[Rfam]
RNA sequence: CAAUUUGGAGCGCUGAGUUCUUACAAAACAAGAAGCGGGGGAACCAUUCUUUUGGGGUGAAUCUCUUUUCAGAGUAGGGUCAUCUUCUUUCGAUCCGAAUCCGUCAGCUAACCUCGUAAGCGUGGAAAGAGGAGAU
Numbered sequence: 001c002a003a004u005u006u007g008g009a010g011c012g013c014u015g016a017g018u019u020c021u022u023a024c025a026a027a028a029c030a031a032g033a034a035g036c037g038g039g040g041g042a043a044c045c046a047u048u049c050u051u052u053u054g055g056g057g058u059g060a061a062u063c064u065c066u067u068u069u070c071a072g073a074g075u076a077g078g079g080u081c082a083u084c085u086u087c088u089u090u091c092g093a094u095c096c097g098a099a100u101c102c103g104u105c106a107g108c109u110a111a112c113c114u115c116g117u118a119a120g121c122g123u124g125g126a127a128a129g130a131g132g133a134g135a136u
Stems, first nucleotide, its partner, number of pairs: 011122004018034005035117006045054002055102003063074004077096004